[Rfam]
RNA: U4 spliceosomal RNA
RNA sequence: AGCUUUGCACAGUGGCAGUAUCAUAACCAAUGUAGUUUAUCUGAGGCGGGAAGAUUACUAAUUGAAAACUUUUUCCAAUACCCUGCUAUGAUGACUUGAAAUACAGUAUGCAUUGGCAAUUUAAAAAUUUUUUGAAUGAAA
Number, nucleotide and partner (000 for none) at each position: 001a000002g000003c000004u000005u000006u000007g000008c000009a000010c000011a000012g000013u000014g000015g000016c000017a000018g000019u000020a000021u051022c050023a000024u048025a000026a000027c046028c045029a000030a000031u000032g000033u000034a042035g041036u000037u000038u000039a000040u000041c035042u034043g000044a000045g028046g027047c000048g024049g000050g022051a021052a000053g000054a000055u000056u000057a000058c000059u000060a000061a000062u000063u000064g000065a000066a000067a000068a000069c000070u000071u000072u000073u000074u000075c000076c000077a000078a000079u000080a000081c000082c000083c000084u000085g117086c116087u115088a113089u112090g111091a000092u000093g000094a107095c106096u105097u000098g000099a000100a000101a000102u000103a000104c000105a096106g095107u094108a000109u000110g000111c090112a089113u088114u000115g087116g086117c085118a000119a000120u000121u000122u000123a000124a000125a000126a000127a000128u000129u000130u141131u140132u139133u138134g000135a000136a000137u000138g133139a132140a131141a130